[Rfam]
RNA sequence: GGUAGUAGCAAAUACUCAAGUGAGACCCUUGAGGACCAAUGUGGAGAAGGGUUCCAUGUGAACAGCAGUUGAACAUGGGUCAGUCGGCCCUAAGGAAUCGGAGAAAUCCGUUUUAAAAGUCGCAGUAAUACAUUUCAAUAUGACACUGUGAAAAUAAUCCGAAAGGGAAUUGGGUUAAUAUUCCCAAACUCAGACAAGGAGAUAGUACCCUCGGGUACAAGCGCGGUAACGCAAACAAACUCGGAGACGUCGGCGAUAGCCCUGGGAAGAGUUGUCUUUUCUUUGUAAGGUUUCGACUCCCUGAAAAAAGUUUGCCUUGAGAUAGGGAUGUUGUUACCGUAAAGCUCCGCGGCUCUUGCGGAGUCCAGAGCGCUAUUGUCGGCCCUUGAAAAUCCGAGGGCGGUAGUGUGAUUUUCUUGCUGAGCCGUACCCAUAUCCGCAGCAGGUCUCCAAGGUGAACAGCCUCUGGUUGU
Number, nucleotide and partner (000 for none) at each position: 001g000002g000003u000004a000005g000006u000007a000008g000009c000010a000011a000012a000013u000014a000015c033016u032017c031018a030019a029020g028021u000022g000023a000024g000025a000026c000027c000028c020029u019030u018031g017032a016033g015034g471035a470036c469037c468038a000039a000040u000041g000042u000043g451044g450045a449046g448047a000048a000049g431050g430051g000052u000053u000054c078055c077056a076057u075058g074059u073060g000061a000062a000063c071064a070065g000066c000067a000068g000069u000070u064071g063072a000073a059074c058075a057076u056077g055078g054079g000080u000081c000082a000083g000084u000085c427086g426087g425088c000089c166090c165091u000092a000093a000094g160095g159096a112097a111098u110099c000100g109101g108102a107103g000104a000105a000106a000107u102108c101109c100110g098111u097112u096113u000114u000115a000116a000117a000118a000119g000120u151121c150122g149123c148124a147125g146126u145127a000128a000129u000130a000131c000132a000133u000134u000135u000136c000137a000138a000139u000140a000141u000142g000143a000144c000145a126146c125147u124148g123149u122150g121151a120152a000153a000154a000155u000156a000157a000158u000159c095160c094161g000162a000163a000164a000165g090166g089167g000168a000169a000170u187171u186172g185173g184174g183175u000176u000177a000178a000179u000180a000181u000182u000183c174184c173185c172186a171187a170188a000189c000190u423191c422192a421193g420194a000195c000196a000197a000198g000199g000200a000201g000202a000203u000204a000205g000206u000207a000208c000209c000210c000211u000212c000213g416214g415215g414216u000217a000218c410219a000220a000221g000222c000223g232224c231225g230226g000227u000228a000229a000230c225231g224232c223233a000234a000235a000236c000237a000238a000239a000240c398241u397242c396243g395244g394245a393246g000247a000248c000249g383250u382251c381252g380253g000254c378255g377256a376257u375258a374259g373260c372261c000262c368263u367264g366265g000266g284267a283268a282269g281270a280271g000272u000273u000274g000275u000276c000277u000278u000279u000280u270281c269282u268283u267284u266285g000286u000287a000288a000289g338290g337291u336292u000293u000294c000295g000296a000297c000298u328299c327300c326301c325302u324303g323304a000305a000306a000307a000308a318309a317310g316311u000312u000313u000314g000315c000316c310317u309318u308319g000320a000321g000322a000323u303324a302325g301326g300327g299328a298329u000330g000331u000332u000333g000334u000335u000336a291337c290338c289339g000340u000341a000342a000343a000344g000345c363346u362347c361348c360349g359350c358351g357352g000353c000354u000355c000356u000357u351358g350359c349360g348361g347362a346363g345364u000365c000366c264367a263368g262369a000370g000371c000372g260373c259374u258375a257376u256377u255378g254379u000380c252381g251382g250383c249384c000385c000386u000387u000388g000389a000390a000391a000392a000393u245394c244395c243396g242397a241398g240399g000400g000401c000402g000403g000404u000405a000406g000407u000408g000409u000410g218411a000412u000413u000414u215415u214416c213417u000418u000419g000420c193421u192422g191423a190424g000425c087426c086427g085428u000429a000430c050431c049432c000433a000434u000435a000436u000437c446438c445439g000440c000441a000442g000443c000444a000445g438446g437447u000448c046449u045450c044451c043452a000453a465454g464455g463456u462457g000458a000459a000460c000461a000462g456463c455464c454465u453466c000467u000468g037469g036470u035471u034472g000473u000